[Rfam]
RNA sequence: GUCUCCCAAUCGAGCUCCUUUCUGUCUGUUGGUGGCAGUUUACAGAAUUGCAUGAGGAGAGAGAAUUCACAGAACUAGCAUCAUUUUACCUUCUGUCUUUACAGAGGUCUAUUUGGUUAUUUUGUGAGACAUUC
Numbered sequence: 001g002u003c004u005c006c007c008a009a010u011c012g013a014g015c016u017c018c019u020u021u022c023u024g025u026c027u028g029u030u031g032g033u034g035g036c037a038g039u040u041u042a043c044a045g046a047a048u049u050g051c052a053u054g055a056g057g058a059g060a061g062a063g064a065a066u067u068c069a070c071a072g073a074a075c076u077a078g079c080a081u082c083a084u085u086u087u088a089c090c091u092u093c094u095g096u097c098u099u100u101a102c103a104g105a106g107g108u109c110u111a112u113u114u115g116g117u118u119a120u121u122u123u124g125u126g127a128g129a130c131a132u133u134c
Stems, first nucleotide, its partner, number of pairs: 003056003014051002016046002022038005067127006090107006
Dot-bracket structure: ..(((........((((....(((((.......)))))......))...))..)))..........((((((.................((((((......))))))..............)))))).......

Overview:
The family of this 134-nucleotide sequence from Carlito syrichta is "Small nucleolar RNA SNORA75". Rfam links the family to the GO terms RNA processing and nucleolus. The family has 6 seed sequences and 414 matches in Rfam 15.1. It is annotated as an H/ACA-box small nucleolar RNA. U23 belongs to the H/ACA class of snoRNAs. snoRNAs bind a number of proteins (including dyskerin, Gar1p and Nop10p in the case of the H/ACA class) to form snoRNP complexes. This class are thought to guide the sites of modification of uridines to pseudouridines by forming direct base pairing interactions with substrate RNAs. The family's consensus secondary structure was predicted with PFOLD. The source organism's lineage runs through Eukaryota, Eumetazoa, Gnathostomata, Teleostomi and Carlito.